[Rfam]
RNA sequence: UCAGCAGAGUUUGUAGGCUGCAGCAAAAGUGCUUACAGCGCGGCCCCGUCAGAUUUCAACAAAUCUGUGAAUUCUGCU
Number, nucleotide and partner (000 for none) at each position: 001u000002c000003a000004g000005c000006a000007g000008a000009g000010u000011u000012u000013g046014u000015a000016g045017g044018c043019u042020g000021c000022a078023g077024c076025a075026a000027a073028a072029g041030u040031g039032c000033u000034u000035a000036c000037a000038g000039c031040g030041c029042g019043g018044c017045c016046c013047c000048g000049u000050c067051a066052g065053a064054u063055u062056u061057c000058a000059a000060c000061a056062a055063a054064u053065c052066u051067g050068u000069g000070a000071a000072u028073u027074c000075u025076g024077c023078u022
The record is a 78-nucleotide RNA from Crocodylus porosus, which matches "Mammalian CPEB3 ribozyme" in Rfam.
Gene Ontology term of the family: RNA nuclease activity.
The mammalian CPEB3 ribozyme is a self cleaving RNA located in the second intron of the CPEB3 gene which belongs to a family of genes regulating messenger RNA polyadenylation.
The match comes from Rfam's covariance-model search (44 bits).
Taxonomically the source falls in Crocodylus (Eukaryota, Craniata, Sarcopterygii, Dipnotetrapodomorpha).